[Rfam]
RNA sequence: AAUAAUGUUAUCUAGGGUUCCGCGAUUGAUAAAUCGGCUGGUCCGAGAGAUAACUCACGGCCGGUAGGUCGUGUCACGGAGGGAUAAAAGCCCGGGAGAU
Numbered sequence: 001a002a003u004a005a006u007g008u009u010a011u012c013u014a015g016g017g018u019u020c021c022g023c024g025a026u027u028g029a030u031a032a033a034u035c036g037g038c039u040g041g042u043c044c045g046a047g048a049g050a051u052a053a054c055u056c057a058c059g060g061c062c063g064g065u066a067g068g069u070c071g072u073g074u075c076a077c078g079g080a081g082g083g084a085u086a087a088a089a090g091c092c093c094g095g096g097a098g099a100u
Base pairs, nucleotide, nucleotide: 007054008053009052010051011050012049015044016043020041021040022038023036024035025034026033027032056073057072058071059070060069061068062067075095077098081093082092083091
Dot-bracket structure: ......((((((..((...((((((((....))))).).)).))....)))))).(((((((....))))))).(.[...(((.......))).)..]..

Guanidine-I riboswitch aptamer: a 100-nucleotide sequence from Paenibacillus sp. UNCCL117. Gene Ontology term of the family: regulation of gene expression. The base pairs follow the family's consensus structure. The family has 100 seed sequences and 1,509 matches in Rfam 15.1.